[Rfam]
RNA sequence: CGUCGUGACACGGGGUGCCGCAACCAGCGGCUGAGAACACACCCGUCGAACCUGAUCUAGGUCGCACUAGCGAAGGGAUGUCGCGCAUGUCUCCC
Dot-bracket structure: .....(((((((((.((((((.....))))).......)..)))).....(((...((((......))))...)))..)))))............
Numbered sequence: 001c002g003u004c005g006u007g008a009c010a011c012g013g014g015g016u017g018c019c020g021c022a023a024c025c026a027g028c029g030g031c032u033g034a035g036a037a038c039a040c041a042c043c044c045g046u047c048g049a050a051c052c053u054g055a056u057c058u059a060g061g062u063c064g065c066a067c068u069a070g071c072g073a074a075g076g077g078a079u080g081u082c083g084c085g086c087a088u089g090u091c092u093c094c095c
Stems, first nucleotide, its partner, number of pairs: 006083005011045004016039001017031005051076003057070004